[Rfam]
RNA sequence: CUGUCGCCUGGUUCAAGUAAUCCGGAGUGGACUGUUAUCAGGCAGCACGGCCUAUUCUUGAUUACUUGUUUCAGAAGGCGG
Numbered sequence: 001c002u003g004u005c006g007c008c009u010g011g012u013u014c015a016a017g018u019a020a021u022c023c024g025g026a027g028u029g030g031a032c033u034g035u036u037a038u039c040a041g042g043c044a045g046c047a048c049g050g051c052c053u054a055u056u057c058u059u060g061a062u063u064a065c066u067u068g069u070u071u072c073a074g075a076a077g078g079c080g081g
Base pairs, nucleotide, nucleotide: 002080003079004078005077008074009073010072011071014068015067016066017065018064019063020062021061022060024058025057026056027055028054029053030052032050033049
mir-26 microRNA precursor family: an 81-nucleotide sequence from Chelonoidis abingdonii. The base pairs follow the family's consensus structure, which was predicted with RNAalifold. Taxonomically the source falls in Chelonoidis nigra species complex (Eukaryota, Craniata, Tetrapoda, Sauria).